[Rfam]
RNA sequence: AUAAUUGGUAGAGGUGCAAUGAUCAAUAGUAGCAAAAUGUAAUGUUUGGUGACAGCAUUUGCGAAAGGGUGAUUUGCCGAAGGAAAUAGUAACACCAAUUACUAUUUACCUGGGGGAUUAUAGAAGAUAUAAUUUCCUGUCACAUUCAUGUGGAGCGCUAUCUUAGUA
Numbered sequence: 001a002u003a004a005u006u007g008g009u010a011g012a013g014g015u016g017c018a019a020u021g022a023u024c025a026a027u028a029g030u031a032g033c034a035a036a037a038u039g040u041a042a043u044g045u046u047u048g049g050u051g052a053c054a055g056c057a058u059u060u061g062c063g064a065a066a067g068g069g070u071g072a073u074u075u076g077c078c079g080a081a082g083g084a085a086a087u088a089g090u091a092a093c094a095c096c097a098a099u100u101a102c103u104a105u106u107u108a109c110c111u112g113g114g115g116g117a118u119u120a121u122a123g124a125a126g127a128u129a130u131a132a133u134u135u136c137c138u139g140u141c142a143c144a145u146u147c148a149u150g151u152g153g154a155g156c157g158c159u160a161u162c163u164u165a166g167u168a
Stems, first nucleotide, its partner, number of pairs: 007162005016077004024069001032062005081111003084107008112138011140153005
Background
Rfam assigns this 168-nucleotide RNA sequence from Thomasclavelia ramosa to the family "Lysine riboswitch aptamer". Its family is annotated with lysine biosynthetic process in the Gene Ontology.